[Rfam]
RNA sequence: UCAGAGGGCCGGGCGGCCGCGUCACUUUUUUUAGUGCCGAGGAAAGUCCGGGCUCCAAUAAAGCAGGAUGCCGGAUAACGCCCGGCGAGGGUGACCUCAGGGACAGUGCCACAGAGAGAAGACUACCCGGCGCGCCCAUUUAUGGGUUGUUCGGGAAAAGCUGAAAGGGUGCGGUAAGAGCGCACCGGGCCGCGUGUAAACGGGGCCGUCACGGUAAACCCCAUCCGGAGCAAGACCAAAUAGGGACGGCGUAUAUCGGGCUUUGUCGAUGUCGUCCGGGUCGGUUGCAUGAGGUGUCGCGUAAGCGCCGCCCCAGAUGAAUGGCCGCCCCUGCGGACCUUAACGGGUGCGUAGGACAAAACCCGGCUUAUAGGCCCUCUGACACU
Numbered sequence: 001u002c003a004g005a006g007g008g009c010c011g012g013g014c015g016g017c018c019g020c021g022u023c024a025c026u027u028u029u030u031u032u033a034g035u036g037c038c039g040a041g042g043a044a045a046g047u048c049c050g051g052g053c054u055c056c057a058a059u060a061a062a063g064c065a066g067g068a069u070g071c072c073g074g075a076u077a078a079c080g081c082c083c084g085g086c087g088a089g090g091g092u093g094a095c096c097u098c099a100g101g102g103a104c105a106g107u108g109c110c111a112c113a114g115a116g117a118g119a120a121g122a123c124u125a126c127c128c129g130g131c132g133c134g135c136c137c138a139u140u141u142a143u144g145g146g147u148u149g150u151u152c153g154g155g156a157a158a159a160g161c162u163g164a165a166a167g168g169g170u171g172c173g174g175u176a177a178g179a180g181c182g183c184a185c186c187g188g189g190c191c192g193c194g195u196g197u198a199a200a201c202g203g204g205g206c207c208g209u210c211a212c213g214g215u216a217a218a219c220c221c222c223a224u225c226c227g228g229a230g231c232a233a234g235a236c237c238a239a240a241u242a243g244g245g246a247c248g249g250c251g252u253a254u255a256u257c258g259g260g261c262u263u264u265g266u267c268g269a270u271g272u273c274g275u276c277c278g279g280g281u282c283g284g285u286u287g288c289a290u291g292a293g294g295u296g297u298c299g300c301g302u303a304a305g306c307g308c309c310g311c312c313c314c315a316g317a318u319g320a321a322u323g324g325c326c327g328c329c330c331c332u333g334c335g336g337a338c339c340u341u342a343a344c345g346g347g348u349g350c351g352u353a354g355g356a357c358a359a360a361a362c363c364c365g366g367c368u369u370a371u372a373g374g375c376c377c378u379c380u381g382a383c384a385c386u
Base pairs, nucleotide, nucleotide: 001382002381003380004379005378006377007376008375009374010373011371012329013328014327015326016325017324018323020039021038023036024035025034026033044369045368046367048366049365050364051363052362053230054229055228056227061264062263063262066226067225068224069223070222071085072084073083074082086100087098088097089096090095101221102220106219107218108215109214110213123160124159126155127154128153129152130151168186169185170184171183172182173181187210188207189206190205191204193202194201195200234286235285236284237283244277245276246275247274248273249272255270256269257268258267259266293312294311295310296309298307299306300305
Record summary: The family of this 386-nucleotide RNA from Algimonas arctica is "Bacterial RNase P class A". NCBI's taxonomy places the organism under Bacteria, Pseudomonadati, Pseudomonadota, Alphaproteobacteria, Algimonas. Its family is annotated with dimeric ribonuclease P complex, tRNA processing and ribonuclease P activity in the Gene Ontology.